[Rfam]
RNA: Lysine riboswitch aptamer
RNA sequence: AAUUUAAGAAGAGGCGCAGCUUUUAUUAGUAACAAUUUUGAGACUUACUAGGUUGAUGACAGAUUGUAAAAGGGAAAGCUGCCGAAACAAAAUAAAUGGUAACUAUUUUGUUGGGGUUUGAUUUAAUAAAUCAAACACUGUCGUAUUGUAAAAUACGGAGCGCUUUUAAAACU
Numbered sequence: 001a002a003u004u005u006a007a008g009a010a011g012a013g014g015c016g017c018a019g020c021u022u023u024u025a026u027u028a029g030u031a032a033c034a035a036u037u038u039u040g041a042g043a044c045u046u047a048c049u050a051g052g053u054u055g056a057u058g059a060c061a062g063a064u065u066g067u068a069a070a071a072g073g074g075a076a077a078g079c080u081g082c083c084g085a086a087a088c089a090a091a092a093u094a095a096a097u098g099g100u101a102a103c104u105a106u107u108u109u110g111u112u113g114g115g116g117u118u119u120g121a122u123u124u125a126a127u128a129a130a131u132c133a134a135a136c137a138c139u140g141u142c143g144u145a146u147u148g149u150a151a152a153a154u155a156c157g158g159a160g161c162g163c164u165u166u167u168a169a170a171a172c173u
Stems, first nucleotide, its partner, number of pairs: 007167005016082009032067007086112009113139002116136008141158007